Bacterial RNase P class A: a 374-nucleotide RNA sequence from Jilunia laotingensis. Rfam's curators write: Ribonuclease P (RNase P) is a ubiquitous endoribonuclease, found in archaea, bacteria and eukarya as well as chloroplasts and mitochondria. Lineage of the source: Bacteria > Bacteroidia > Bacteroidales > Bacteroidaceae > Jilunia. Its family is annotated with ribonuclease P activity, tRNA processing and dimeric ribonuclease P complex in the Gene Ontology.

RNA sequence: GCAGUUGGCCGGCCUGUCGCGUGCGCUUCGGGUGCAGGAGGAAAGUCCGGGCAACACAGAGCAUCCUACUUCCUAACAGAAAGCUGUCCGUGAGGGUAGAGUAACGUAGAAGAGAAUAACCGCCGUUUUUUUUAUUUGAAAACCGGUAAGGGUGAGAAGGUAGGGUAAGAGCCUACCAGCCACAUGGCAACAUGUCGGGCUGUACGUCUUAGGAGUUGUAAGGUCAUGUAUACCGGCGUUAUGAGAGUUGCUCGCUCCAUGUCGGAGGGUAGACCGCUAAAGUGGCAUGGUGACAUGUCGCUCAGAUAAAUGACAGGCACUUUAUAGAUUUGUCUAUGAAGUAACAGAACCCGGCUUACAGGCCGACUGCUUUU
Numbered sequence: 001g002c003a004g005u006u007g008g009c010c011g012g013c014c015u016g017u018c019g020c021g022u023g024c025g026c027u028u029c030g031g032g033u034g035c036a037g038g039a040g041g042a043a044a045g046u047c048c049g050g051g052c053a054a055c056a057c058a059g060a061g062c063a064u065c066c067u068a069c070u071u072c073c074u075a076a077c078a079g080a081a082a083g084c085u086g087u088c089c090g091u092g093a094g095g096g097u098a099g100a101g102u103a104a105c106g107u108a109g110a111a112g113a114g115a116a117u118a119a120c121c122g123c124c125g126u127u128u129u130u131u132u133u134a135u136u137u138g139a140a141a142a143c144c145g146g147u148a149a150g151g152g153u154g155a156g157a158a159g160g161u162a163g164g165g166u167a168a169g170a171g172c173c174u175a176c177c178a179g180c181c182a183c184a185u186g187g188c189a190a191c192a193u194g195u196c197g198g199g200c201u202g203u204a205c206g207u208c209u210u211a212g213g214a215g216u217u218g219u220a221a222g223g224u225c226a227u228g229u230a231u232a233c234c235g236g237c238g239u240u241a242u243g244a245g246a247g248u249u250g251c252u253c254g255c256u257c258c259a260u261g262u263c264g265g266a267g268g269g270u271a272g273a274c275c276g277c278u279a280a281a282g283u284g285g286c287a288u289g290g291u292g293a294c295a296u297g298u299c300g301c302u303c304a305g306a307u308a309a310a311u312g313a314c315a316g317g318c319a320c321u322u323u324a325u326a327g328a329u330u331u332g333u334c335u336a337u338g339a340a341g342u343a344a345c346a347g348a349a350c351c352c353g354g355c356u357u358a359c360a361g362g363c364c365g366a367c368u369g370c371u372u373u374u
Stems, first nucleotide, its partner, number of pairs: 001370010011359001012318007020038001022036006043357003047354005052218004059253004064214005069083003073079001084099001086097004100209002104207005120151002122147004127142004159177006179200001180198002182195005222275004233265005245257004282301008